[Rfam]
RNA sequence: UAUAUUUGAAUAAUAAAACCUUGUAUAAGUUCAGGAAUACGGCUUGAACGUUUCUACCAGCUACCAUAAAUAGCUUGUCUACAAGGAUAGUGAAAAUAUUU
Dot-bracket structure: ..................(((((((...(((((((.......)))))))........((((((.......)))).))..)))))))...............
Numbered sequence: 001u002a003u004a005u006u007u008g009a010a011u012a013a014u015a016a017a018a019c020c021u022u023g024u025a026u027a028a029g030u031u032c033a034g035g036a037a038u039a040c041g042g043c044u045u046g047a048a049c050g051u052u053u054c055u056a057c058c059a060g061c062u063a064c065c066a067u068a069a070a071u072a073g074c075u076u077g078u079c080u081a082c083a084a085g086g087a088u089a090g091u092g093a094a095a096a097u098a099u100u101u
Stems, first nucleotide, its partner, number of pairs: 019086007029049007058077002060074004